[Rfam]
RNA sequence: GGUAGGAGCCAGUGAUGUUUUUACUGAAAAUGUCUGAACCUGUCUGAAGCAUCUCAGUGAUGCCAACUCUGUGUGGUGCUGAGGCUUCUUUGCCA
Numbered sequence: 001g002g003u004a005g006g007a008g009c010c011a012g013u014g015a016u017g018u019u020u021u022u023a024c025u026g027a028a029a030a031u032g033u034c035u036g037a038a039c040c041u042g043u044c045u046g047a048a049g050c051a052u053c054u055c056a057g058u059g060a061u062g063c064c065a066a067c068u069c070u071g072u073g074u075g076g077u078g079c080u081g082a083g084g085c086u087u088c089u090u091u092g093c094c095a
Stems, first nucleotide, its partner, number of pairs: 004089007

A member of the RNA family "Small nucleolar RNA SNORD91 family" from Erinaceus europaeus, 95 nucleotides long. It is annotated as a C/D-box small nucleolar RNA. Gene Ontology terms of the family: RNA processing and nucleolus. The base pairs follow the family's consensus structure. For this family Rfam cites "RNomics: an experimental approach that identifies 201 candidates for novel, small, non-messenger RNAs in mouse" (Huttenhofer et al., EMBO J, 2001). Lineage of the source: Eukaryota > Deuterostomia > Theria > Erinaceinae > Erinaceus.